[Rfam]
This 174-nucleotide RNA sequence from Butyrivibrio sp. XB500-5 belongs to the Rfam family "Lysine riboswitch aptamer".
RNA sequence: AAGUUAGAUAGAGGUUGCGUGUUUUAUCAGUAGUUUUGCGGAUGUGUCAGGCACAGGAGAAGCUAAGCGAAAGGAGAAUACGCCGAAAGGGUCGGGGACCUGAUAACCGAGGCCUUGGGUAUGCAGUUAAGAGCUGCAUAACUGUCAUCAUUAGGAUGGGGCGCUAUCAACAUU
Numbered sequence: 001a002a003g004u005u006a007g008a009u010a011g012a013g014g015u016u017g018c019g020u021g022u023u024u025u026a027u028c029a030g031u032a033g034u035u036u037u038g039c040g041g042a043u044g045u046g047u048c049a050g051g052c053a054c055a056g057g058a059g060a061a062g063c064u065a066a067g068c069g070a071a072a073g074g075a076g077a078a079u080a081c082g083c084c085g086a087a088a089g090g091g092u093c094g095g096g097g098a099c100c101u102g103a104u105a106a107c108c109g110a111g112g113c114c115u116u117g118g119g120u121a122u123g124c125a126g127u128u129a130a131g132a133g134c135u136g137c138a139u140a141a142c143u144g145u146c147a148u149c150a151u152u153a154g155g156a157u158g159g160g161g162c163g164c165u166a167u168c169a170a171c172a173u174u
Stems, first nucleotide, its partner, number of pairs: 007168005017083009033068004038063002087116004092111001095108002117143002120140008145159005